[Rfam]
RNA sequence: UUGUAAAGAUAUGUUUAGCUGUAGGGCUUGUUCUUAUCAAUAAAAUUAUGUGGUAAGGCAUAUUGAUGAA
Numbered sequence: 001u002u003g004u005a006a007a008g009a010u011a012u013g014u015u016u017a018g019c020u021g022u023a024g025g026g027c028u029u030g031u032u033c034u035u036a037u038c039a040a041u042a043a044a045a046u047u048a049u050g051u052g053g054u055a056a057g058g059c060a061u062a063u064u065g066a067u068g069a070a
Stems, first nucleotide, its partner, number of pairs: 008064006014030001017028004033057007